[Rfam]
RNA: tRNA
RNA sequence: UCCGAUAUGGUGUAGUGGUUAACAUCGUUCGCUCUCAUGGGAUUCAACAGAAUCCGAUUAGGACCGAACAGCCCCGGGUUCGAUUCCCGGUGUCGGAA
Numbered sequence: 001u002c003c004g005a006u007a008u009g010g011u012g013u014a015g016u017g018g019u020u021a022a023c024a025u026c027g028u029u030c031g032c033u034c035u036c037a038u039g040g041g042a043u044u045c046a047a048c049a050g051a052a053u054c055c056g057a058u059u060a061g062g063a064c065c066g067a068a069c070a071g072c073c074c075c076g077g078g079u080u081c082g083a084u085u086c087c088c089g090g091u092g093u094c095g096g097a098a
Base pairs, nucleotide, nucleotide: 001097002096003095004094005093006092007091010025011024012023013022027069028068029067030066031065074090075089076088077087078086